Rfam assigns this 156-nucleotide sequence from Nephila pilipes to the family "U12 minor spliceosomal RNA". The literature on the family includes a 1997 paper in Trends Biochem Sci by Tarn and Steitz, "Pre-mRNA splicing: the discovery of a new spliceosome doubles the challenge". A search with the family's covariance model found it, with a score of 68 bits. Its family is annotated with mRNA branch site recognition, U12 snRNP and pre-mRNA branch point binding in the Gene Ontology. Rfam classes the family as a spliceosomal small nuclear RNA. NCBI's taxonomy places the organism under Eukaryota, Opisthokonta, Bilateria, Araneoidea, Nephila.
[Rfam]
RNA sequence: GUGCCUUAAACUUAUGAGUAAGGAAAAUGAAGUGCCUUGGCGGUAACGCUUAGCGCAACCGUCUUAUUGGUACUAAUUUUUUUGGAAGGGUACAGGUCGAUCCCCGUAAACCCCGCUUACUUUUACUUGGUUGCUGAGUUGUUGUGAUCUUACCCU
Numbered sequence: 001g002u003g004c005c006u007u008a009a010a011c012u013u014a015u016g017a018g019u020a021a022g023g024a025a026a027a028u029g030a031a032g033u034g035c036c037u038u039g040g041c042g043g044u045a046a047c048g049c050u051u052a053g054c055g056c057a058a059c060c061g062u063c064u065u066a067u068u069g070g071u072a073c074u075a076a077u078u079u080u081u082u083u084g085g086a087a088g089g090g091u092a093c094a095g096g097u098c099g100a101u102c103c104c105c106g107u108a109a110a111c112c113c114c115g116c117u118u119a120c121u122u123u124u125a126c127u128u129g130g131u132u133g134c135u136g137a138g139u140u141g142u143u144g145u146g147a148u149c150u151u152a153c154c155c156u
Base pairs, nucleotide, nucleotide: 004023005022006021007020008019032056033055034054035053039049058071059070060069061068087156088155089154090153091152094150095149096148097147098146099145104138106134107133108132112130113129115127
Clan: U2 clan.